[Rfam]
Nucleotides: 094
Stems, first nucleotide, its partner, number of pairs: 023084008035075005040069004048065005
Number, partner (000 for none) and nucleotide at each position: 001000c002000a003000u004000a005000c006000u007000u008000u009000a010000a011000u012000u013000u014000u015000a016000a017000a018000u019000c020000a021000c022000a023084c024083a025082c026081a027080u028079u029078c030077c031000g032000a033000c034000a035075c036074g037073u038072g039071u040069u041068c042067c043066g044000g045000g046000g047000u048065g049064c050063u051062c052061u053000g054000c055000a056000u057000a058000g059000a060000c061052a062051g063050a064049g065048u066043c067042g068041g069040a070000u071039g072038c073037a074036u075035g076000g077030g078029g079028a080027g081026u082025g083024u084023g085000g086000a087000g088000g089000c090000c091000u092000a093000a094000c
The record is a 94-nucleotide sequence from Vibrio eleionomae, which matches "t44 RNA" in Rfam. The literature on the family includes a 2002 paper in Nucleic Acids Res by Tjaden et al., "Transcriptome analysis of Escherichia coli using high-density oligonucleotide probe arrays". The match comes from Rfam's covariance-model search (83 bits). Lineage of the source: Bacteria > Pseudomonadati > Pseudomonadota > Vibrionaceae > Vibrio.